Overview:
The record is a 116-nucleotide RNA sequence from Pararhizobium mangrovi, which matches "Alphaproteobacterial ar15" in Rfam. The literature on the family includes a 2011 paper in Mol Microbiol by Wilms et al., "Small RNA-mediated control of the Agrobacterium tumefaciens GABA binding protein". Rfam classes the family as a small RNA.
[Rfam]
RNA sequence: AGCUGAUGCACUUUGACGGUCUUACCUCCCAGUACCGUCGCAGCAGCUGUUCCCCUCUGGAGGUUUUUAGCCUUCACACCUUAAAGGGCCCGAGAGCAUUCUCGUGGCCCUUUUUU
Numbered sequence: 001a002g003c004u005g006a007u008g009c010a011c012u013u014u015g016a017c018g019g020u021c022u023u024a025c026c027u028c029c030c031a032g033u034a035c036c037g038u039c040g041c042a043g044c045a046g047c048u049g050u051u052c053c054c055c056u057c058u059g060g061a062g063g064u065u066u067u068u069a070g071c072c073u074u075c076a077c078a079c080c081u082u083a084a085a086g087g088g089c090c091c092g093a094g095a096g097c098a099u100u101c102u103c104g105u106g107g108c109c110c111u112u113u114u115u116u
Base pairs, nucleotide, nucleotide: 001048002047003046004045005044007042008041009040016038017037018036019035058076059075060074061073062072063071064070085111086110087109088108089107090106091104092103093102094101
Rfam 15.1 lists 316 matches to the family in 177 species.